[Rfam]
RNA: Mu-gpT-DE RNA
RNA sequence: CCUUGACAGUCGCAUAAUGCGGCUGACAUUUGCCACGACAAGGAGAUUAAAAUG
Numbered sequence: 001c002c003u004u005g006a007c008a009g010u011c012g013c014a015u016a017a018u019g020c021g022g023c024u025g026a027c028a029u030u031u032g033c034c035a036c037g038a039c040a041a042g043g044a045g046a047u048u049a050a051a052a053u054g
Stems, first nucleotide, its partner, number of pairs: 002042004007025005